Shown here is a 105-nucleotide RNA sequence from Sodalis ligni, a member of the family "RprA RNA".
RNA sequence: GCAUCAAUUAACUCAACUCUCUGAUUUUACAUCACGGUUUCCCCUGAGUUAAAUGAAUUGCUGUGUGUAGUCUUUGCCCGUCUCAUAGGAUGGGCUUUUUUUUAU
Numbered sequence: 001g002c003a004u005c006a007a008u009u010a011a012c013u014c015a016a017c018u019c020u021c022u023g024a025u026u027u028u029a030c031a032u033c034a035c036g037g038u039u040u041c042c043c044c045u046g047a048g049u050u051a052a053a054u055g056a057a058u059u060g061c062u063g064u065g066u067g068u069a070g071u072c073u074u075u076g077c078c079c080g081u082c083u084c085a086u087a088g089g090a091u092g093g094g095c096u097u098u099u100u101u102u103u104a105u
Base pairs, nucleotide, nucleotide: 002023003022033046034045036043037042059067060066061065076095077094078093079092080091081090082089
Gene Ontology term of the family: mRNA binding. On this family, see Majdalani et al., Mol Microbiol 2001: "Regulation of RpoS by a novel small RNA: the characterization of RprA". About the family: Translational regulation of the stationary phase sigma factor RpoS is mediated by the formation of a double-stranded RNA stem-loop structure in the upstream region of the rpoS messenger RNA, occluding the translation initiation site. The match comes from Rfam's covariance-model search (75 bits).